The record is a 369-nucleotide sequence from Periconia digitata, which matches "Nuclear RNase P" in Rfam. The family's consensus secondary structure is taken from published work. Taxonomically the source falls in Periconia (Eukaryota, Ascomycota, leotiomyceta, Periconiaceae). A search with the family's covariance model found it, with a score of 54 bits. Its family is annotated with ribonuclease P complex, ribonuclease P activity and tRNA processing in the Gene Ontology.

RNA sequence: GUCUGCCCAAAGCUGCGUUUCUUUGCUUACAAACAGACGCUCGAACUUCGGUUCUUGCUGUCUUUUCAUGCAAAUGAGAAAUUCGGAGUAAUCUUCAAAUUCUUCUGCUGCCUCGCUUCGCGAGUGCGGCACUACUGCCCGUAAGGGCCUGGCGUGACUCACGUCUGCAUUCGGCAUCAGAAAUCUCAGGGCCCAGGAAGUCGACCGCUGGAAACGGUGGUCGUGCGGACUGGUGUCUCUAUGGAAGUCGGUGCGAAGAUUGUGUGCUCUACGGAGUGACACUGUAGUGCAAUACGUAGCGUGCUUGACUCCAAGUAGCUUCGGUGAAAGGAUGAUAGUAUAAUUCGAUUCUGAUUACUCUGGGGAGAC
Number, nucleotide and partner (000 for none) at each position: 001g369002u368003c367004u366005g000006c000007c000008c363009a000010a361011a000012g000013c000014u299015g000016c000017g000018u000019u294020u000021c000022u074023u073024u072025g071026c000027u000028u000029a000030c000031a000032a000033a000034c000035a000036g062037a061038c060039g000040c000041u057042c000043g000044a000045a000046c000047u000048u000049c000050g000051g000052u000053u000054c000055u000056u000057g041058c000059u000060g038061u037062c036063u000064u000065u000066u000067c000068a000069u000070g000071c025072a024073a023074a022075u000076g000077a000078g000079a000080a000081a000082u000083u000084c353085g352086g351087a350088g349089u000090a000091a000092u000093c258094u257095u256096c255097a000098a000099a000100u000101u000102c000103u000104u000105c000106u000107g000108c000109u000110g000111c000112c000113u000114c000115g000116c000117u000118u000119c000120g000121c000122g000123a000124g000125u000126g000127c000128g000129g000130c000131a000132c000133u000134a000135c000136u000137g148138c147139c146140c145141g000142u000143a000144a000145g140146g139147g138148c137149c000150u000151g165152g164153c163154g162155u161156g000157a000158c000159u000160c000161a155162c154163g153164u152165c151166u000167g254168c253169a252170u250171u000172c000173g000174g000175c000176a000177u000178c000179a000180g000181a000182a000183a000184u000185c000186u000187c000188a000189g240190g239191g238192c000193c000194c000195a000196g000197g000198a000199a000200g000201u000202c000203g000204a000205c000206c000207g000208c000209u000210g000211g000212a000213a000214a000215c000216g000217g000218u000219g000220g000221u000222c000223g000224u000225g000226c000227g000228g000229a000230c000231u000232g000233g000234u000235g000236u000237c000238u191239c190240u189241a000242u000243g000244g000245a000246a000247g000248u000249c000250g170251g000252u169253g168254c167255g096256a095257a094258g093259a000260u000261u000262g000263u000264g000265u000266g000267c000268u000269c000270u000271a000272c000273g000274g000275a000276g000277u000278g000279a000280c000281a000282c000283u000284g000285u000286a000287g000288u000289g000290c000291a000292a000293u000294a019295c000296g000297u000298a000299g014300c000301g341302u340303g339304c338305u337306u000307g000308a000309c000310u000311c000312c000313a000314a000315g000316u000317a000318g000319c000320u000321u000322c000323g000324g000325u000326g000327a000328a000329a000330g000331g000332a000333u000334g000335a000336u000337a305338g304339u303340a302341u301342a000343a000344u000345u000346c000347g000348a000349u088350u087351c086352u085353g084354a000355u000356u000357a000358c000359u000360c000361u010362g000363g008364g000365g000366a004367g003368a002369c001

Annotation: Rfam describes the family as follows. Ribonuclease P (RNase P) is a ubiquitous endoribonuclease, found in archaea, bacteria and eukarya as well as chloroplasts and mitochondria.